[Rfam]
RNA sequence: GGGGGACCACUGGAUCCUGGGCAGUGUUCCCCGGUGCCCUGGGCUCUGGGGCCUGCGCCACUGGGAUCGCUACUGGGGCCAUGCAGCCCCCU
Number, nucleotide and partner (000 for none) at each position: 001g091002g090003g089004g088005g087006a000007c000008c000009a000010c083011u081012g080013g079014a000015u000016c078017c077018u000019g000020g074021g073022c000023a071024g070025u069026g068027u000028u000029c065030c064031c063032c000033g059034g058035u057036g056037c055038c000039c000040u000041g053042g000043g052044c051045u050046c000047u000048g000049g000050g045051g044052c043053c041054u000055g037056c036057g035058c034059c033060a000061c000062u000063g031064g030065g029066a000067u000068c026069g025070c024071u023072a000073c021074u020075g000076g000077g017078g016079c013080c012081a011082u000083g010084c000085a000086g000087c005088c004089c003090c002091c001092u000